[Rfam]
RNA: Clostridiales-1 RNA
RNA sequence: AGAUACUAGGGUCAAAAGGUCGAAAUCCACAUGAGCUUGCUCAUCGGUGGAUGGAAGACCUGGAGACCCGUCCCGAUAUGAGCAUAAAAGUGGGAUGAUUAUCCCACGAUAUGCGAAUAUAGGGGAGGAUUGUGAGAGUGCAAAGCACGAAACAAUCCGUAGGUAUCU
Numbered sequence: 001a002g003a004u005a006c007u008a009g010g011g012u013c014a015a016a017a018g019g020u021c022g023a024a025a026u027c028c029a030c031a032u033g034a035g036c037u038u039g040c041u042c043a044u045c046g047g048u049g050g051a052u053g054g055a056a057g058a059c060c061u062g063g064a065g066a067c068c069c070g071u072c073c074c075g076a077u078a079u080g081a082g083c084a085u086a087a088a089a090g091u092g093g094g095a096u097g098a099u100u101a102u103c104c105c106a107c108g109a110u111a112u113g114c115g116a117a118u119a120u121a122g123g124g125g126a127g128g129a130u131u132g133u134g135a136g137a138g139u140g141c142a143a144a145g146c147a148c149g150a151a152a153c154a155a156u157c158c159g160u161a162g163g164u165a166u167c168u
Stems, first nucleotide, its partner, number of pairs: 001168007010068004016061001018059001020057001025052006031044005072124003076120004082114004090107007127158007138148004